[Rfam]
RNA: Yersinia sRNA 224
RNA sequence: GAGCUUGUUGACAAAGUACCCGGUCGUGACAGGCUGCCAGAUCGUAAACACGCCGUAAAUACGUCCUUGUAGGCUCGAUCCGCGCCAUCCCUGGCGCGGACGGUUU
Numbered sequence: 001g002a003g004c005u006u007g008u009u010g011a012c013a014a015a016g017u018a019c020c021c022g023g024u025c026g027u028g029a030c031a032g033g034c035u036g037c038c039a040g041a042u043c044g045u046a047a048a049c050a051c052g053c054c055g056u057a058a059a060u061a062c063g064u065c066c067u068u069g070u071a072g073g074c075u076c077g078a079u080c081c082g083c084g085c086c087a088u089c090c091c092u093g094g095c096g097c098g099g100a101c102g103g104u105u106u
Stems, first nucleotide, its partner, number of pairs: 013106003017102001020026001028076002040065003044062003050056002080099008
Dot-bracket structure: ............(((.(..(.....).((..........(((.(((...((...))...)))))).........))...((((((((....))))))))..).)))